A member of the RNA family "Small nucleolar RNA SNORA14" from Clupea harengus, 133 nucleotides long.
A search with the family's covariance model found it, with a score of 55 bits.
From the family's description: ACA14 is a member of the H/ACA class of snoRNA that guide the sites of modification of uridines to pseudouridines.
Pairs were carried over by alignment from the consensus structure, which was predicted with RNAfold.
The source organism's lineage runs through Eukaryota, Eumetazoa, Vertebrata, Gnathostomata and Clupea.
Gene Ontology terms of the family: RNA processing and nucleolus.
[Rfam]
RNA sequence: CUGCAAUCUUCAAAACCCCCCGUUUGCUGCGUGUAGCUUUUGGGAUAAGCAAGAAUGCAAGAUCAACUCUAGAACUUUCAAAGUGGAGGGUCUUGCUGCAGUGGCUCUCUACUAUUUCACCUCUAGAACAUAU
Numbered sequence: 001c002u003g004c005a006a007u008c009u010u011c012a013a014a015a016c017c018c019c020c021c022g023u024u025u026g027c028u029g030c031g032u033g034u035a036g037c038u039u040u041u042g043g044g045a046u047a048a049g050c051a052a053g054a055a056u057g058c059a060a061g062a063u064c065a066a067c068u069c070u071a072g073a074a075c076u077u078u079c080a081a082a083g084u085g086g087a088g089g090g091u092c093u094u095g096c097u098g099c100a101g102u103g104g105c106u107c108u109c110u111a112c113u114a115u116u117u118c119a120c121c122u123c124u125a126g127a128a129c130a131u132a133u
Base pairs, nucleotide, nucleotide: 003058004057005056007055009051011049019044020043021042022041026037027036062133063132068127069126070125071124072123073122082113083112084111085110086109087108088107090105091104096101